[Rfam]
RNA sequence: AGGUCAGUGAAGCAACAACGUGGCAGGAACGGGGGAACCAAUCAUGGUUGUCCGGGCGGCGCCCGGUCGGCCUUGGGGUGAAGCCCGCAGGAGGCCCUGCGGGCCGGGCGUCUCCAGUCCGAACCCGACAGCUCACCUCGUCGGCUAUCCAGGAGAAAGCA
Numbered sequence: 001a002g003g004u005c006a007g008u009g010a011a012g013c014a015a016c017a018a019c020g021u022g023g024c025a026g027g028a029a030c031g032g033g034g035g036a037a038c039c040a041a042u043c044a045u046g047g048u049u050g051u052c053c054g055g056g057c058g059g060c061g062c063c064c065g066g067u068c069g070g071c072c073u074u075g076g077g078g079u080g081a082a083g084c085c086c087g088c089a090g091g092a093g094g095c096c097c098u099g100c101g102g103g104c105c106g107g108g109c110g111u112c113u114c115c116a117g118u119c120c121g122a123a124c125c126c127g128a129c130a131g132c133u134c135a136c137c138u139c140g141u142c143g144g145c146u147a148u149c150c151a152g153g154a155g156a157a158a159g160c161a
Stems, first nucleotide, its partner, number of pairs: 004027002029141006039075002076126003084103006106120004
Notes
Rfam assigns this 161-nucleotide RNA from Actinomyces sp. 2119 to the family "c-di-AMP riboswitch aptamer (ydaO/yuaA leader)". About the family: This family represents a conserved RNA structure found upstream of the ydaO and yuaA genes in Bacillus subtilis and related genes in other bacteria. It scores 60 bits against the family's covariance model.